[Rfam]
RNA: Small nucleolar RNA SNORD56
RNA sequence: CUACAAUGAUGGCAAUAUGUUUCAUCGACAGCAGUUCACCCAUUGAGUGUUGAUACCGUGGGUCUGAGUGA
Numbered sequence: 001c002u003a004c005a006a007u008g009a010u011g012g013c014a015a016u017a018u019g020u021u022u023c024a025u026c027g028a029c030a031g032c033a034g035u036u037c038a039c040c041c042a043u044u045g046a047g048u049g050u051u052g053a054u055a056c057c058g059u060g061g062g063u064c065u066g067a068g069u070g071a
Stems, first nucleotide, its partner, number of pairs: 002070003008026004